A member of the RNA family "Small nucleolar RNA snoR2/U65" from Salix koriyanagi, 148 nucleotides long. Clan: SNORA65 clan. Rfam classes the family as an H/ACA-box small nucleolar RNA. A reference for the family is Shaw et al. (1998), "Localization and processing from a polycistronic precursor of novel snoRNAs in maize", J Cell Sci. The source organism's lineage runs through Eukaryota, Tracheophyta, Gunneridae, Salicaceae and Salix. The family has 11 seed sequences and 908 matches in Rfam 15.1.
RNA sequence: GGUCUAAUGCCACGUCGACGGUAGCCGGAAAGGCGUUGACCGGCGAUGCUAUGAUUAGGCCGAAAUCAAUCUCAUGUUUCGUUUGCUGAUAGGAAUCUGUGGAUCUCAUUUUAGUAGAUGCAUGGAGCCGUUUUCUGCGAUUACAAAU
Numbered sequence: 001g002g003u004c005u006a007a008u009g010c011c012a013c014g015u016c017g018a019c020g021g022u023a024g025c026c027g028g029a030a031a032g033g034c035g036u037u038g039a040c041c042g043g044c045g046a047u048g049c050u051a052u053g054a055u056u057a058g059g060c061c062g063a064a065a066u067c068a069a070u071c072u073c074a075u076g077u078u079u080c081g082u083u084u085g086c087u088g089a090u091a092g093g094a095a096u097c098u099g100u101g102g103a104u105c106u107c108a109u110u111u112u113a114g115u116a117g118a119u120g121c122a123u124g125g126a127g128c129c130g131u132u133u134u135c136u137g138c139g140a141u142u143a144c145a146a147a148u
Base pairs, nucleotide, nucleotide: 002060003059004058005057006056007055008054009052013048014047015046016045017044020041021040022039024034025033026032079140080139081138082137092129093128097125098124099123101121103119104118105117
Dot-bracket structure: .((((((((...(((((..(((.(((.....)))....)))..)))))...).)))))))..................((((.........((...(((.(.(((...........))).).)))..)).......))))........